About this RNA:
Shown here is a 296-nucleotide sequence from Trichonephila clavata, a member of the family "Nuclear RNase P". Ribonuclease P (RNase P) is a ubiquitous endoribonuclease, found in archaea, bacteria and eukarya as well as chloroplasts and mitochondria. Its best characterised activity is the generation of mature 5'-ends of tRNAs by cleaving the 5'-leader elements of precursor-tRNAs. Lineage of the source: Eukaryota > Eumetazoa > Arthropoda > Orbiculariae > Trichonephila.
Nucleotides: 296
Base pairs, nucleotide, nucleotide: 001296002295003294008290009289010288013248014247015246016245017244018243019242021058022057023056024055025054034048035047036046037045038044067280068279069278070277071276076223077222078221079220092106093105094104095103096102107123108122109121110120111119112118124219125218126217127216128215129214130213145204146203147202249268250267251266252265253264254263255262
Number, partner (000 for none) and nucleotide at each position: 001296u002295g003294c004000a005000g006000u007000g008290g009289g010288g011000a012000g013248u014247u015246u016245g017244c018243a019242u020000g021058a022057g023056g024055g025054g026000c027000u028000a029000c030000g031000a032000a033000c034048g035047u036046g037045u038044a039000u040000u041000u042000a043000u044038u045037g046036c047035a048034c049000u050000a051000u052000u053000g054025c055024c056023c057022u058021u059000g060000g061000g062000a063000a064000g065000g066000u067280c068279u069278g070277a071276g072000a073000u074000g075000a076223u077222g078221u079220c080000g081000c082000c083000c084000g085000u086000u087000g088000a089000g090000g091000a092106g093105g094104u095103c096102c097000g098000a099000g100000a101000u102096g103095g104094g105093c106092u107123c108122c109121c110120g111119u112118u113000c114000a115000a116000u117000u118112a119111g120110c121109g122108g123107g124219g125218c126217g127216g128215g129214c130213a131000a132000a133000g134000a135000g136000a137000a138000a139000c140000g141000u142000u143000g144000u145204g146203c147202c148000a149000u150000g151000c152000g153000g154000g155000u156000u157000u158000g159000g160000u161000u162000g163000c164000g165000a166000a167000u168000g169000a170000a171000g172000u173000a174000c175000a176000c177000u178000c179000u180000g181000c182000u183000g184000a185000c186000g187000c188000u189000c190000u191000c192000c193000u194000g195000c196000c197000g198000c199000a200000u201000c202147g203146g204145c205000u206000u207000g208000g209000g210000a211000u212000a213130u214129g215128c216127u217126c218125g219124u220079g221078g222077c223076a224000a225000g226000a227000a228000u229000u230000u231000c232000a233000c234000a235000g236000c237000u238000c239000g240000a241000u242019a243018u244017g245016c246015a247014a248013a249268g250267c251266a252265c253264c254263a255262u256000u257000u258000g259000a260000a261000u262255a263254u264253g265252g266251u267250g268249u269000a270000a271000c272000a273000c274000a275000a276071u277070u278069c279068a280067g281000a282000c283000u284000a285000c286000u287000c288010c289009c290008u291000c292000a293000c294003g295002c296001a
Rfam classes the family as a ribozyme. The family's consensus secondary structure is taken from published work.